[Rfam]
Shown here is a 742-nucleotide sequence, a member of the family "MISL RNA".
RNA sequence: GGAUAAGCUCAGGUAACUGGGCGAAAGGUUGUGCUUUGCUGGUAGGGUACAGCCCCCUCCGCUAUGGGAUAAACCAGAGUGGGGGGCAGGAUCCACCGGGCGACUCGGCGUCUGACCGCUAGGCGCCGUCACAGCGGCAAGUCGUUCAGGCGAGUAAGAUCACAACCCCUGUGAUCUGACUCGAGUGAGAGUCACCAAUGGUGGAGGGGUAACCAUUGGUGAAUCGCAGUUUCCCGGGAAAGGGAACACGGUUGCUACUGCGAUACCAGCCUGGUUUACUGUGUUGGAACAGCGCGGGGAAUCCCGCUAAAGCACGCAGUAGGCCAGGAGGCCGGCCUUGUGCGGGCCGCAAGACCGGACCUCGCCUGCGCGGGGACCAAACGUAUGCCCGCGUAGCUGCCACUGAAAGGCAACCUGAGGAUCGAGCCGAGACCCGUAACCUAGGGGAGCAUUAUUCCCCGACUUGGGGAGAGUAAGCCUCCUAGGAUAAAACCUUGGUUUCUGGGUAGGCAGCGGGGGCCAGGGUGGGUGUGCCGAUGGAAGACACUUUAUAGCGUCUACCGAAGGCAGGCUCAGAAGGCUCGGUCCGAUAAUCGGCAGUCGUAAGACGCCGACGGCCCUGCUAUGAGGCCGAAACUCCUGAGUGGCCCUCGGAGAAUAGCGUCGGGAAGCCAGCAGCCAACAAAGCGUAUAGCUUUGGGGCGCCUAAUGUUGGCAGGGGGAAGAGAGUGUGGCGAGCUCC
Numbered sequence: 001g002g003a004u005a006a007g008c009u010c011a012g013g014u015a016a017c018u019g020g021g022c023g024a025a026a027g028g029u030u031g032u033g034c035u036u037u038g039c040u041g042g043u044a045g046g047g048u049a050c051a052g053c054c055c056c057c058u059c060c061g062c063u064a065u066g067g068g069a070u071a072a073a074c075c076a077g078a079g080u081g082g083g084g085g086g087c088a089g090g091a092u093c094c095a096c097c098g099g100g101c102g103a104c105u106c107g108g109c110g111u112c113u114g115a116c117c118g119c120u121a122g123g124c125g126c127c128g129u130c131a132c133a134g135c136g137g138c139a140a141g142u143c144g145u146u147c148a149g150g151c152g153a154g155u156a157a158g159a160u161c162a163c164a165a166c167c168c169c170u171g172u173g174a175u176c177u178g179a180c181u182c183g184a185g186u187g188a189g190a191g192u193c194a195c196c197a198a199u200g201g202u203g204g205a206g207g208g209g210u211a212a213c214c215a216u217u218g219g220u221g222a223a224u225c226g227c228a229g230u231u232u233c234c235c236g237g238g239a240a241a242g243g244g245a246a247c248a249c250g251g252u253u254g255c256u257a258c259u260g261c262g263a264u265a266c267c268a269g270c271c272u273g274g275u276u277u278a279c280u281g282u283g284u285u286g287g288a289a290c291a292g293c294g295c296g297g298g299g300a301a302u303c304c305c306g307c308u309a310a311a312g313c314a315c316g317c318a319g320u321a322g323g324c325c326a327g328g329a330g331g332c333c334g335g336c337c338u339u340g341u342g343c344g345g346g347c348c349g350c351a352a353g354a355c356c357g358g359a360c361c362u363c364g365c366c367u368g369c370g371c372g373g374g375g376a377c378c379a380a381a382c383g384u385a386u387g388c389c390c391g392c393g394u395a396g397c398u399g400c401c402a403c404u405g406a407a408a409g410g411c412a413a414c415c416u417g418a419g420g421a422u423c424g425a426g427c428c429g430a431g432a433c434c435c436g437u438a439a440c441c442u443a444g445g446g447g448a449g450c451a452u453u454a455u456u457c458c459c460c461g462a463c464u465u466g467g468g469g470a471g472a473g474u475a476a477g478c479c480u481c482c483u484a485g486g487a488u489a490a491a492a493c494c495u496u497g498g499u500u501u502c503u504g505g506g507u508a509g510g511c512a513g514c515g516g517g518g519g520c521c522a523g524g525g526u527g528g529g530u531g532u533g534c535c536g537a538u539g540g541a542a543g544a545c546a547c548u549u550u551a552u553a554g555c556g557u558c559u560a561c562c563g564a565a566g567g568c569a570g571g572c573u574c575a576g577a578a579g580g581c582u583c584g585g586u587c588c589g590a591u592a593a594u595c596g597g598c599a600g601u602c603g604u605a606a607g608a609c610g611c612c613g614a615c616g617g618c619c620c621u622g623c624u625a626u627g628a629g630g631c632c633g634a635a636a637c638u639c640c641u642g643a644g645u646g647g648c649c650c651u652c653g654g655a656g657a658a659u660a661g662c663g664u665c666g667g668g669a670a671g672c673c674a675g676c677a678g679c680c681a682a683c684a685a686a687g688c689g690u691a692u693a694g695c696u697u698u699g700g701g702g703c704g705c706c707u708a709a710u711g712u713u714g715g716c717a718g719g720g721g722g723a724a725g726a727g728a729g730u731g732u733g734g735c736g737a738g739c740u741c742c
Stems, first nucleotide, its partner, number of pairs: 007022005027054003031050007059082005098147007110124005116137004151183004158176002161173003165210006193221010225262005231246004250415006294307005315344004376384002419588003424583004440486007451474003455470005494524010529572002532569004538563003542559004547554001594614005600609003615633005622662004637656004642652003671716007678703002683699006727741003